[Rfam]
RNA sequence: CACACCGUUCUGGAAGAGAUCUGCGAUCGCCAGUCGAUUGGCAGACGCCGAAGGCGCAACAUCCGCCCGGAAUCGCUCAGGCUACAGGACCGGAACGGUGCA
Numbered sequence: 001c002a003c004a005c006c007g008u009u010c011u012g013g014a015a016g017a018g019a020u021c022u023g024c025g026a027u028c029g030c031c032a033g034u035c036g037a038u039u040g041g042c043a044g045a046c047g048c049c050g051a052a053g054g055c056g057c058a059a060c061a062u063c064c065g066c067c068c069g070g071a072a073u074c075g076c077u078c079a080g081g082c083u084a085c086a087g088g089a090c091c092g093g094a095a096c097g098g099u100g101c102a
Base pairs, nucleotide, nucleotide: 006097007096008095009094010093011092012091013090020045021044022043023042047082048081049080050078051077054076055075056074060069
Glycine riboswitch aptamer: a 102-nucleotide RNA from Thioalkalivibrio versutus. It scores 62 bits against the family's covariance model. From the family's description: This family represents the bacterial glycine riboswitch.